Overview
mir-26 microRNA precursor family: an 81-nucleotide RNA sequence from Conger conger. The family has 82 seed sequences and 2,251 matches in Rfam 15.1. The base pairs follow the family's consensus structure, which was predicted with RNAalifold. A search with the family's covariance model found it, with a score of 82 bits. The literature on the family includes a 2001 paper in Science by Lagos-Quintana et al., "Identification of novel genes coding for small expressed RNAs".

RNA sequence: CUGUGACCUGGUUCAAGUAAUCCAGGAUAGGCUGUGUACAUCCAUGGUGGCCUAUUCAUGAUUACUUGCACUAGGGAUCAG
Numbered sequence: 001c002u003g004u005g006a007c008c009u010g011g012u013u014c015a016a017g018u019a020a021u022c023c024a025g026g027a028u029a030g031g032c033u034g035u036g037u038a039c040a041u042c043c044a045u046g047g048u049g050g051c052c053u054a055u056u057c058a059u060g061a062u063u064a065c066u067u068g069c070a071c072u073a074g075g076g077a078u079c080a081g
Base pairs, nucleotide, nucleotide: 002080003079007075008074009073010072011071012070014068015067016066017065018064019063020062021061022060025057026056027055028054029053030052031051032050033049